[Rfam]
RNA: msiK RNA
RNA sequence: UACCCAUCCACUUCACUACGGAUCGUCCGGCACGUACCUGCCGGUGAAGGGAAGCAGCA
Numbered sequence: 001u002a003c004c005c006a007u008c009c010a011c012u013u014c015a016c017u018a019c020g021g022a023u024c025g026u027c028c029g030g031c032a033c034g035u036a037c038c039u040g041c042c043g044g045u046g047a048a049g050g051g052a053a054g055c056a057g058c059a
Base pairs, nucleotide, nucleotide: 009051011049012048013047014046015045027044028043029042030041031040032039
Dot-bracket structure: ........(.(((((...........((((((......))))))))))).)........